[Rfam]
RNA sequence: UAUUGUGGUGGUUUCUCUAUUUGGCAGAUCUGCAACUACAGCAGAGCGGCCUUAAACUACCACAGAAAUCAGAAAGGAGAAGACUGUGCUGAGAACUUAUUCAGGCUUUUAGUUUUCAGCAUGUUUUUCAGCUCCUACACAC
Numbered sequence: 001u002a003u004u005g006u007g008g009u010g011g012u013u014u015c016u017c018u019a020u021u022u023g024g025c026a027g028a029u030c031u032g033c034a035a036c037u038a039c040a041g042c043a044g045a046g047c048g049g050c051c052u053u054a055a056a057c058u059a060c061c062a063c064a065g066a067a068a069u070c071a072g073a074a075a076g077g078a079g080a081a082g083a084c085u086g087u088g089c090u091g092a093g094a095a096c097u098u099a100u101u102c103a104g105g106c107u108u109u110u111a112g113u114u115u116u117c118a119g120c121a122u123g124u125u126u127u128u129c130a131g132c133u134c135c136u137a138c139a140c141a142c
Stems, first nucleotide, its partner, number of pairs: 005063007023051003027047001029045004076135004103126004

Shown here is a 142-nucleotide RNA sequence from Jacana jacana, a member of the family "Small nucleolar RNA SNORA12". It is annotated as an H/ACA-box small nucleolar RNA. Rfam links the family to the GO terms nucleolus and RNA processing. U108 belongs to the H/ACA family of snoRNAs. The sequence is predicted to guide the pseudouridylation of the U372 residue in the 28S rRNA subunit. However it has not been reported as a pseudouridylation site. The family has 23 seed sequences and 571 matches in Rfam 15.1.